[Rfam]
RNA: rmf RNA
Organism: Pseudomonas fluorescens
RNA sequence: UUGGUUAGAACUCAAUACAGGUUGACGCCGCAACGACGUCAACACCUUGGCUCGUGACGCCGGCAGCGAGCCACCAACGGCAGAAAUUUUUCUGCCUGACCUCGAUCGAGGUCGACGCGACAAAUACAGUCAAC
Numbered sequence: 001u002u003g004g005u006u007a008g009a010a011c012u013c014a015a016u017a018c019a020g021g022u023u024g025a026c027g028c029c030g031c032a033a034c035g036a037c038g039u040c041a042a043c044a045c046c047u048u049g050g051c052u053c054g055u056g057a058c059g060c061c062g063g064c065a066g067c068g069a070g071c072c073a074c075c076a077a078c079g080g081c082a083g084a085a086a087u088u089u090u091u092c093u094g095c096c097u098g099a100c101c102u103c104g105a106u107c108g109a110g111g112u113c114g115a116c117g118c119g120a121c122a123a124a125u126a127c128a129g130u131c132a133a134c
Stems, first nucleotide, its partner, number of pairs: 021043007029035001049072007079096006098113006